RNA sequence: UGACAUCUGUUCCUCUGAUGAAGCCUCUUAUGUUUUAUCAGAUUUCAGAAUGUCAGAGAGUAAAAACGAGUUGCUUCACCCAGAAUUGUAUCUCUAAUUACACUGUCUGGCUUUUGCGGAUUCAUACAGUU
Dot-bracket structure: ((((((.(.....(((((.((((.........)))).))))).....).))))))............(((((.......((((((.(((..........))).).)))))........)))))........
The record is a 131-nucleotide RNA sequence from Pogonomyrmex barbatus, which matches "Small nucleolar RNA SNORA79" in Rfam. The family's consensus secondary structure was predicted with RNAalifold. ACA65 (SNORA79) is a member of the H/ACA class of snoRNAs that guide the sites of modification of uridines to pseudouridines. This snoRNA was identified by computational screening and its expression in mouse experimentally verified by Northern blot and primer extension analysis. The family has 25 seed sequences and 944 matches in Rfam 15.1.